The record is a 157-nucleotide RNA sequence from Clostridiales bacterium CHKCI001, which matches "Clostridiales-1 RNA" in Rfam. The family has 194 seed sequences and 1,172 matches in Rfam 15.1. The family's RNA type in Rfam is small RNA. Lineage of the source: Bacteria > Bacillati > Bacillota > Clostridia > Eubacteriales.
[Rfam]
Nucleotides: 157
Base pairs, nucleotide, nucleotide: 001157002156003155004154005153006152007151008067009066011064014060015059016058017057018056019055021053024050025049026048027047030043031042034039072115073114074113075112076111077110078109081106082105083104084103088099089098091096119150120149121148122147123146124145125144130140131139132138133137
Number, partner (000 for none) and nucleotide at each position: 001157u002156g003155a004154a005153a006152g007151u008067g009066u010000c011064g012000u013000c014060a015059a016058u017057g018056u019055c020000c021053a022000a023000a024050c025049a026048g027047c028000c029000a030043g031042g032000a033000g034039a035000u036000u037000u038000a039034u040000a041000c042031c043030c044000u045000g046000u047027g048026c049025u050024g051000a052000a053021u054000a055019g056018a057017u058016a059015u060014u061000c062000g063000a064011c065000c066009a067008c068000c069000u070000g071000a072115c073114c074113u075112g076111u077110a078109u079000g080000a081106g082105c083104a084103g085000g086000u087000a088099a089098g090000a091096c092000a093000u094000u095000c096091g097000c098089c099088u100000a101000g102000a103084u104083u105082g106081c107000g108000a109078a110077u111076a112075c113074g114073g115072g116000c117000a118000g119150c120149g121148a122147u123146g124145u125144c126000a127000c128000g129000a130140g131139u132138g133137c134000a135000c136000a137133g138132c139131a140130c141000g142000a143000a144125g145124a146123c147122a148121u149120u150119g151007a152006c153005u154004u155003u156002u157001a